Rfam assigns this 117-nucleotide sequence from Gracilibacillus boraciitolerans to the family "TPP riboswitch aptamer (THI element)". Pairs were carried over by alignment from the consensus structure, which is taken from published work. Lineage of the source: Bacteria > Bacillati > Bacillota > Bacilli > Gracilibacillus boraciitolerans. It scores 67 bits against the family's covariance model.
RNA sequence: AAUCACUACUAGGGGGUGCCUAUCAGUAUAGGCUGAGAGAAAAGCGCGAUAAAGCUUUUUAACUCUUAAGGACCUGAUCUGGCUGAUACCAGCGGAGGGAAGUAGCUAAACUAAUUU
Numbered sequence: 001a002a003u004c005a006c007u008a009c010u011a012g013g014g015g016g017u018g019c020c021u022a023u024c025a026g027u028a029u030a031g032g033c034u035g036a037g038a039g040a041a042a043a044g045c046g047c048g049a050u051a052a053a054g055c056u057u058u059u060u061a062a063c064u065c066u067u068a069a070g071g072a073c074c075u076g077a078u079c080u081g082g083c084u085g086a087u088a089c090c091a092g093c094g095g096a097g098g099g100a101a102g103u104a105g106c107u108a109a110a111c112u113a114a115u116u117u
Stems, first nucleotide, its partner, number of pairs: 006105005011067001012065002015063001018033005040059005073098003079092004